RNA: c-di-AMP riboswitch aptamer (ydaO/yuaA leader)
Organism: Thermomonospora cellulosilytica
Nucleotides: 140
Base pairs, nucleotide, nucleotide: 011125012124013123014122019038020037040120041119042118043117044116045115050060051059061105062104063103069081070080071079072078084099085098086097087096
Number, partner (000 for none) and nucleotide at each position: 001000g002000u003000c004000c005000c006000g007000g008000c009000g010000g011125c012124g013123c014122c015000g016000a017000a018000c019038c020037c021000c022000u023000c024000a025000c026000a027000u028000c029000g030000c031000g032000c033000c034000g035000c036000g037020g038019g039000a040120g041119c042118c043117g044116g045115g046000g047000a048000c049000c050060c051059a052000c053000g054000c055000u056000u057000c058000c059051u060050g061105g062104g063103g064000u065000g066000a067000a068000u069081c070080c071079g072078c073000c074000g075000u076000g077000c078072g079071c080070g081069g082000u083000a084099g085098g086097g087096c088000g089000a090000c091000u092000c093000c094000u095000g096087g097086c098085c099084c100000g101000a102000a103063c104062c105061c106000g107000u108000c109000a110000g111000c112000u113000a114000a115045c116044c117043c118042g119041g120040u121000a122014g123013g124012c125011g126000g127000u128000c129000u130000c131000g132000a133000a134000g135000g136000a137000g138000a139000g140000c